[Rfam]
RNA sequence: CAACAGAUGGCGUGCAGGGCGGUCGGCAUUCCCUCCGGAGAGGAGGUGAUGCCAUGGAAGUAUAUCAAACAUUAACACUGAUGAUAUCCUUUGGGACAUUGGUGGUUUUGAUACUUUCGUUCAAUAAAAAGAAAUAGACCGCCCCUUCACAGUGGUUGACGGUCAUUUCCGUUAUCCAUUAACCGACCGCCCUUAAAGCGGCUGUUGUGAGGAAUCGUGUCUUCAGCAUGAUUC
Numbered sequence: 001c002a003a004c005a006g007a008u009g010g011c012g013u014g015c016a017g018g019g020c021g022g023u024c025g026g027c028a029u030u031c032c033c034u035c036c037g038g039a040g041a042g043g044a045g046g047u048g049a050u051g052c053c054a055u056g057g058a059a060g061u062a063u064a065u066c067a068a069a070c071a072u073u074a075a076c077a078c079u080g081a082u083g084a085u086a087u088c089c090u091u092u093g094g095g096a097c098a099u100u101g102g103u104g105g106u107u108u109u110g111a112u113a114c115u116u117u118c119g120u121u122c123a124a125u126a127a128a129a130a131g132a133a134a135u136a137g138a139c140c141g142c143c144c145c146u147u148c149a150c151a152g153u154g155g156u157u158g159a160c161g162g163u164c165a166u167u168u169c170c171g172u173u174a175u176c177c178a179u180u181a182a183c184c185g186a187c188c189g190c191c192c193u194u195a196a197a198g199c200g201g202c203u204g205u206u207g208u209g210a211g212g213a214a215u216c217g218u219g220u221c222u223u224c225a226g227c228a229u230g231a232u233u234c
Base pairs, nucleotide, nucleotide: 001207002206003205004204006202008185009184010183012150013149014148016146017145018144019143021139023137027048028047030045032043033042034041056118057117058116059115060114061113062112070083071082094109095108096107160171161170162169187201188200189199190198212234213233214232215231216230217229218228219227220226

Rfam assigns this 234-nucleotide RNA sequence from Dehalobacter sp. 12DCB1 to the family "BsrG". bsrE, bsrG and bsrH pair through intermolecular interactions with antisense sRNAs. They form type I toxin/antitoxin system that includes an mRNA encoding for a short, toxic peptide (bsrE, bsrG and bsrH) and an antitoxin that is comprised of an antisense RNA. bsrG encodes a 39-amino-acid toxin, and the 180 nucleotide antisense sRNA called SR4 acts as the antitoxin (they overlap by 123 nucleotides). SR4 interaction with the 3'UTR of bsrG RNA promotes bsrG degradation and inhibits its translation. BsrG interferes with cell envelope biosynthesis, causes membrane invaginations and delocalisation of the cell wall synthesis and initiates autolysis. bsrE RNA encodes 30 amino-acid toxin peptide. By type it is a small RNA. A search with the family's covariance model found it, with a score of 67 bits. NCBI's taxonomy places the organism under Bacteria, Bacillati, Bacillota, Eubacteriales, Dehalobacter.